[Rfam]
RNA sequence: GCGCGUUCUCGGGGCGGGGUGGAAGUCCCCACCGGCGGUAAGGGCCUCAUGAGGGGCCAGAGCCCGCGAGCGCUCUUGAGGUCCGGUCCGGGCCUUUGGAGGUCAGCAGAUUCGGUGUGAUUCCGAAGCCGACGGUAACAGUCCGGAUGGAAGAGAAUGAAG
Number, nucleotide and partner (000 for none) at each position: 001g000002c000003g000004c159005g158006u157007u156008c155009u154010c153011g000012g000013g000014g000015c000016g000017g029018g028019g027020u000021g000022g000023a000024a000025g000026u000027c019028c018029c017030c000031a142032c141033c131034g130035g067036c066037g065038g064039u000040a000041a000042g000043g000044g000045c000046c000047u000048c000049a000050u000051g000052a000053g000054g000055g000056g000057c000058c000059a000060g000061a000062g129063c128064c038065c037066g036067c035068g000069a000070g107071c106072g000073c000074u000075c000076u000077u000078g000079a000080g000081g000082u000083c000084c000085g000086g000087u000088c000089c000090g000091g000092g000093c000094c000095u000096u000097u000098g000099g000100a000101g000102g000103u000104c000105a000106g071107c070108a000109g000110a000111u127112u126113c125114g124115g123116u000117g000118u000119g000120a000121u000122u000123c115124c114125g113126a112127a111128g063129c062130c034131g033132a000133c145134g144135g143136u000137a000138a000139c000140a000141g032142u031143c135144c134145g133146g000147a000148u000149g000150g000151a000152a000153g010154a009155g008156a007157a006158u005159g004160a000161a000162g000